[Rfam]
RNA sequence: AGUUUUAAGUUACUGGAACGGAGGAACCAAUUUUUGGGGCGUAUCUCUUGAACAGUUAGGAGUUGUGAAUAUUGUUGGACUGAUGCACUCAGCACUCAAUUACCAGGACUCAUCACUCUCUAGAGAGGGGCAUCUCUCAGCCCUAGCCCGUCAGCUAACUUCGUCGGCAUUGAGAGGAAACUGA
Numbered sequence: 001a002g003u004u005u006u007a008a009g010u011u012a013c014u015g016g017a018a019c020g021g022a023g024g025a026a027c028c029a030a031u032u033u034u035u036g037g038g039g040c041g042u043a044u045c046u047c048u049u050g051a052a053c054a055g056u057u058a059g060g061a062g063u064u065g066u067g068a069a070u071a072u073u074g075u076u077g078g079a080c081u082g083a084u085g086c087a088c089u090c091a092g093c094a095c096u097c098a099a100u101u102a103c104c105a106g107g108a109c110u111c112a113u114c115a116c117u118c119u120c121u122a123g124a125g126a127g128g129g130g131c132a133u134c135u136c137u138c139a140g141c142c143c144u145a146g147c148c149c150g151u152c153a154g155c156u157a158a159c160u161u162c163g164u165c166g167g168c169a170u171u172g173a174g175a176g177g178a179a180a181c182u183g184a
Stems, first nucleotide, its partner, number of pairs: 003017003018164006028036002037149003045125004128143004